[Rfam]
RNA sequence: UUAGCGACUGAUUGUCCAAACGCAAUUCUUGAGCAAAAUCAAACGAAACCCCAAGAAUUGUGCAUGGACAUCUGUUGCUGA
Numbered sequence: 001u002u003a004g005c006g007a008c009u010g011a012u013u014g015u016c017c018a019a020a021c022g023c024a025a026u027u028c029u030u031g032a033g034c035a036a037a038a039u040c041a042a043a044c045g046a047a048a049c050c051c052c053a054a055g056a057a058u059u060g061u062g063c064a065u066g067g068a069c070a071u072c073u074g075u076u077g078c079u080g081a
Stems, first nucleotide, its partner, number of pairs: 002080006010072003014069005021062011